The family of this 101-nucleotide RNA from Ascoidea rubescens is "Small nucleolar RNA snR48". The family's consensus secondary structure was predicted with ILM. The family's RNA type in Rfam is C/D-box small nucleolar RNA.
[Rfam]
RNA sequence: UUCUAGAUGAUGAACAUUUAGUAUACAUGUUUUUUCUGGCAUCUCUAAUGCUAGGGCUGUUCGAAGAGCUCGAUGAAUACAACCUUGACUAUUAUCUGAGU
Numbered sequence: 001u002u003c004u005a006g007a008u009g010a011u012g013a014a015c016a017u018u019u020a021g022u023a024u025a026c027a028u029g030u031u032u033u034u035u036c037u038g039g040c041a042u043c044u045c046u047a048a049u050g051c052u053a054g055g056g057c058u059g060u061u062c063g064a065a066g067a068g069c070u071c072g073a074u075g076a077a078u079a080c081a082a083c084c085u086u087g088a089c090u091a092u093u094a095u096c097u098g099a100g101u
Stems, first nucleotide, its partner, number of pairs: 055070004